[Rfam]
RNA sequence: ACGGGCUUUUUUAACGUCACAUUAAGCUUUCCCGACUAUUACUCAAUUCAGUCCAUCUUCAUGGACUUUGAGUGGCUCCUGUCCACUCUGUUUGACGCCUCCCUGUUAUCUUACUGAGCCGCCAGAACUGGCGGCUCUUUUUUU
Numbered sequence: 001a002c003g004g005g006c007u008u009u010u011u012u013a014a015c016g017u018c019a020c021a022u023u024a025a026g027c028u029u030u031c032c033c034g035a036c037u038a039u040u041a042c043u044c045a046a047u048u049c050a051g052u053c054c055a056u057c058u059u060c061a062u063g064g065a066c067u068u069u070g071a072g073u074g075g076c077u078c079c080u081g082u083c084c085a086c087u088c089u090g091u092u093u094g095a096c097g098c099c100u101c102c103c104u105g106u107u108a109u110c111u112u113a114c115u116g117a118g119c120c121g122c123c124a125g126a127a128c129u130g131g132c133g134g135c136u137c138u139u140u141u142u143u144u
Stems, first nucleotide, its partner, number of pairs: 001047001004044001005017002019039001023038002027034001051066004070088006094107004116137009
Dot-bracket structure: (..(((.........)).(...((..(......)..)))....)..)...((((........))))...((((((.......)))))).....((((......))))........(((((((((....))))))))).......
A member of the RNA family "Alphaproteobacterial sRNA BjrC1505", 144 nucleotides long. The pairing is the family consensus, mapped onto this sequence. Rfam classes the family as a small RNA.